[Rfam]
RNA sequence: CACGUCGAAAGCGACUGGCGUGCCGAGGGUGGAAGUGACCACCGGGAAGCGACGGCCGAGCGCACCGAACGCCUGGGUGCCCGGC
Numbered sequence: 001c002a003c004g005u006c007g008a009a010a011g012c013g014a015c016u017g018g019c020g021u022g023c024c025g026a027g028g029g030u031g032g033a034a035g036u037g038a039c040c041a042c043c044g045g046g047a048a049g050c051g052a053c054g055g056c057c058g059a060g061c062g063c064a065c066c067g068a069a070c071g072c073c074u075g076g077g078u079g080c081c082c083g084g085c
Stems, first nucleotide, its partner, number of pairs: 003054004011050002015046002017073005029042004062080005

Shown here is an 85-nucleotide RNA from Lentzea albidocapillata, a member of the family "ZMP/ZTP riboswitch aptamer (pfl RNA motif)". Pairs were carried over by alignment from the consensus structure, which is taken from published work.